[Rfam]
RNA sequence: CCGCCUGGAUCGCCGAAUCCCCCGCCGGCAGGCGGGGGAGCGGGGGACCCACCGUUCGGGGCGAAUUCGGCUCCCUCCCGUCCGGGAGGCGGCCGAUAGGGCAACCUCCACUGCCCGAGCCCGUCAGCUAACCUCGUAGGCGUUGCGGAGGAGGCAG
Dot-bracket structure: ..........((((...(((((((((....)))))))))((((((....(.......)(((.....((((((..................))))))..((((..........))))...))).........)))))).))))...............